[Rfam]
RNA sequence: UAAUUAUCGGGAGCAGUGACUCUCAUAAUUA
Numbered sequence: 001u002a003a004u005u006a007u008c009g010g011g012a013g014c015a016g017u018g019a020c021u022c023u024c025a026u027a028a029u030u031a
Stems, first nucleotide, its partner, number of pairs: 001031007009024005014018001
Shown here is a 31-nucleotide RNA sequence from Triplophysa tibetana, a member of the family "Iron response element II". Its family is annotated with response to iron ion in the Gene Ontology. The base pairs follow the family's consensus structure, which is taken from published work. About the family: IRE, TFRC, SLC40A1, SDHB, SLC11A2, CDC42BPA, ACO2, ALAS2_H.SAPIENS, CDC14A, EPAS1, ALAS2, qoxD, Hao1, NDUFS1, transferrin, Aconitate.